[Rfam]
RNA sequence: CUCAAGACGGGAGGCUCAGAUCCGCCGGAGGCUCCUGACGGCCACCUGACCCGGCGGGGAGCCACUGGUGAGACCGGCCCGGCGUCGG
Numbered sequence: 001c002u003c004a005a006g007a008c009g010g011g012a013g014g015c016u017c018a019g020a021u022c023c024g025c026c027g028g029a030g031g032c033u034c035c036u037g038a039c040g041g042c043c044a045c046c047u048g049a050c051c052c053g054g055c056g057g058g059g060a061g062c063c064a065c066u067g068g069u070g071a072g073a074c075c076g077g078c079c080c081g082g083c084g085u086c087g088g
Base pairs, nucleotide, nucleotide: 001088002087004085006083008081009080010079011078013063014062015061022057023056024055025054026053027052028051031050040075041074043070044069045068046067
RNA: c-di-GMP-II-GAG riboswitch aptamer